[Rfam]
RNA sequence: UCGAAGGAACAACCGUCCUUCCUCUUUCAGGCUCAAGUUUUUUUAUUAAACUUGAGCCUGAAAGAGGAAGGACGGUUGUUCCUUCGA
Numbered sequence: 001u002c003g004a005a006g007g008a009a010c011a012a013c014c015g016u017c018c019u020u021c022c023u024c025u026u027u028c029a030g031g032c033u034c035a036a037g038u039u040u041u042u043u044u045a046u047u048a049a050a051c052u053u054g055a056g057c058c059u060g061a062a063a064g065a066g067g068a069a070g071g072a073c074g075g076u077u078g079u080u081c082c083u084u085c086g087a
Base pairs, nucleotide, nucleotide: 002086003085006082007081009079010078011077012076013075014074015073016072017071018070019069020068021067023065024064025063026062027061028060029059030058031057032056034054035053037051038050039049040048